RNA sequence: UCAAGCGGAACGCCGAGUCCUGCCGCCGCAUGAGGUCCGUUCGAUCCGCUGGCAGGAACGGGGGAACCACUUUCGUGGGCAUCGGUCUCCGAUGUCCUUGGGGUGAAGUCCCGGGCACGUGCGAACGUGACCGGGGCCGGGUGAUCUCCCACCCGAACCCGACAGCUCACCUCGUAGGCGUCCGGAGAGGUACC
Numbered sequence: 001u002c003a004a005g006c007g008g009a010a011c012g013c014c015g016a017g018u019c020c021u022g023c024c025g026c027c028g029c030a031u032g033a034g035g036u037c038c039g040u041u042c043g044a045u046c047c048g049c050u051g052g053c054a055g056g057a058a059c060g061g062g063g064g065a066a067c068c069a070c071u072u073u074c075g076u077g078g079g080c081a082u083c084g085g086u087c088u089c090c091g092a093u094g095u096c097c098u099u100g101g102g103g104u105g106a107a108g109u110c111c112c113g114g115g116c117a118c119g120u121g122c123g124a125a126c127g128u129g130a131c132c133g134g135g136g137c138c139g140g141g142u143g144a145u146c147u148c149c150c151a152c153c154c155g156a157a158c159c160c161g162a163c164a165g166c167u168c169a170c171c172u173c174g175u176a177g178g179c180g181u182c183c184g185g186a187g188a189g190g191u192a193c194c
Stems, first nucleotide, its partner, number of pairs: 011180004018057008058175006068100002101160003109136006139154004
Rfam assigns this 194-nucleotide RNA from Actinotalea soli to the family "c-di-AMP riboswitch aptamer (ydaO/yuaA leader)". It scores 73 bits against the family's covariance model. NCBI's taxonomy places the organism under Bacteria, Bacillati, Actinomycetota, Micrococcales, Actinotalea. From the family's description: This family represents a conserved RNA structure found upstream of the ydaO and yuaA genes in Bacillus subtilis and related genes in other bacteria.